[Rfam]
RNA sequence: AUUGUCCGGGCCCCACGAUCAUGGCUUAUAGCGUAAACGCUUUGUUCGUUCGGCUCGCGCGACUU
Numbered sequence: 001a002u003u004g005u006c007c008g009g010g011c012c013c014c015a016c017g018a019u020c021a022u023g024g025c026u027u028a029u030a031g032c033g034u035a036a037a038c039g040c041u042u043u044g045u046u047c048g049u050u051c052g053g054c055u056c057g058c059g060c061g062a063c064u065u
Stems, first nucleotide, its partner, number of pairs: 001064001003062001004060002007057006016048002020044002023040001
mir-375 microRNA precursor family: a 65-nucleotide RNA from Saccoglossus kowalevskii. The organism belongs to Saccoglossus, within Eukaryota. The family's consensus secondary structure was predicted with RNAalifold.